[Rfam]
RNA sequence: GGUUGUAAGUUUGAGGCCAUAAUAGAAGCACUCAAGGUAUAGCCCUGUCAGAUUCCAGCUAAUCUGUGAAUUCUGCU
Numbered sequence: 001g002g003u004u005g006u007a008a009g010u011u012u013g014a015g016g017c018c019a020u021a022a023u024a025g026a027a028g029c030a031c032u033c034a035a036g037g038u039a040u041a042g043c044c045c046u047g048u049c050a051g052a053u054u055c056c057a058g059c060u061a062a063u064c065u066g067u068g069a070a071u072u073c074u075g076c077u
Stems, first nucleotide, its partner, number of pairs: 013045001015044003021077001023075005028040001030038001049066006
A member of the RNA family "Mammalian CPEB3 ribozyme" from Alligator sinensis, 77 nucleotides long.
Its family is annotated with RNA nuclease activity in the Gene Ontology.
The base pairs follow the family's consensus structure, which is taken from published work.